[Rfam]
RNA: Small nucleolar RNA SNORA31
RNA sequence: AUGCAUCUGUUUGACAGACCUGGAGCAAACACUGUUGCUUCUCAGGGCUUAUCAGGUUCUCUCUUGAGAUGCAACAUUAACAGGUUCCUUGCGCUUUCUGCCUGUCUGACCUAGUGGCAGGUCAGAUUGAAUAAAGGAACACAAAU
Numbered sequence: 001a002u003g004c005a006u007c008u009g010u011u012u013g014a015c016a017g018a019c020c021u022g023g024a025g026c027a028a029a030c031a032c033u034g035u036u037g038c039u040u041c042u043c044a045g046g047g048c049u050u051a052u053c054a055g056g057u058u059c060u061c062u063c064u065u066g067a068g069a070u071g072c073a074a075c076a077u078u079a080a081c082a083g084g085u086u087c088c089u090u091g092c093g094c095u096u097u098c099u100g101c102c103u104g105u106c107u108g109a110c111c112u113a114g115u116g117g118c119a120g121g122u123c124a125g126a127u128u129g130a131a132u133a134a135a136g137g138a139a140c141a142c143a144a145a146u
Base pairs, nucleotide, nucleotide: 002073003072004071005070006069007068008067013061017058018057019056020055023050024049025048026047086138087137088136089135090134094129097126098125099124100123102120103119104118105117106116